[Rfam]
RNA sequence: GGUGGUUAUUGGGUGACACACCCCAGAACCGGGCUCCCUCUUCUGUGGUUUUGGGUGUAUCACCCGAGAACUGAA
Numbered sequence: 001g002g003u004g005g006u007u008a009u010u011g012g013g014u015g016a017c018a019c020a021c022c023c024c025a026g027a028a029c030c031g032g033g034c035u036c037c038c039u040c041u042u043c044u045g046u047g048g049u050u051u052u053g054g055g056u057g058u059a060u061c062a063c064c065c066g067a068g069a070a071c072u073g074a075a
Stems, first nucleotide, its partner, number of pairs: 003073001005071003009067008019057005025052007033044001
Dot-bracket structure: ..(.(((.((((((((..(((((.(((((((.(..........).))))))))))))..)))))))).))).)..

Source information:
Rfam assigns this 75-nucleotide sequence from Pipistrellus kuhlii to the family "mir-9223 microRNA precursor family". The match comes from Rfam's covariance-model search (59 bits). The base pairs follow the family's consensus structure, which was predicted with RNAalifold. The organism belongs to Pipistrellus, within Eukaryota. Gene Ontology terms of the family: RISC complex and miRNA-mediated post-transcriptional gene silencing.